[Rfam]
RNA: glmS glucosamine-6-phosphate activated ribozyme aptamer
RNA sequence: AUGUUUCUAGUAGCGCAUGGGCCGGACUAGAGGAGGAAGUUCCGGUUGACGAGGAGGGGGCCGUUCGGAAUUGUCAGCGGGGAGCCCCCAGGGUCGAUCACAACCCUGAAAAGAGAACACACAACGCCUGCCGGUAACGACCAGGACAAACCGUUCUCAGUGAUGUAG
Numbered sequence: 001a002u003g004u005u006u007c008u009a010g011u012a013g014c015g016c017a018u019g020g021g022c023c024g025g026a027c028u029a030g031a032g033g034a035g036g037a038a039g040u041u042c043c044g045g046u047u048g049a050c051g052a053g054g055a056g057g058g059g060g061c062c063g064u065u066c067g068g069a070a071u072u073g074u075c076a077g078c079g080g081g082g083a084g085c086c087c088c089c090a091g092g093g094u095c096g097a098u099c100a101c102a103a104c105c106c107u108g109a110a111a112a113g114a115g116a117a118c119a120c121a122c123a124a125c126g127c128c129u130g131c132c133g134g135u136a137a138c139g140a141c142c143a144g145g146a147c148a149a150a151c152c153g154u155u156c157u158c159a160g161u162g163a164u165g166u167a168g
Stems, first nucleotide, its partner, number of pairs: 020047007057088005066077001068075002089108006113158006127144001130141001132139002